[Rfam]
RNA: Small nucleolar RNA SNORD24
Organism: Lupinus albus
RNA sequence: GGCCAAUGAUGUUAUAACAUAUUUGCUACUCUUGAUGGGAAUGUCCCAUUUGAUGAUAUUUUUCCACCAAGAUCUCUGAGGCU
Dot-bracket structure: ((((...........................................................................))))
Numbered sequence: 001g002g003c004c005a006a007u008g009a010u011g012u013u014a015u016a017a018c019a020u021a022u023u024u025g026c027u028a029c030u031c032u033u034g035a036u037g038g039g040a041a042u043g044u045c046c047c048a049u050u051u052g053a054u055g056a057u058a059u060u061u062u063u064c065c066a067c068c069a070a071g072a073u074c075u076c077u078g079a080g081g082c083u
Stems, first nucleotide, its partner, number of pairs: 001083004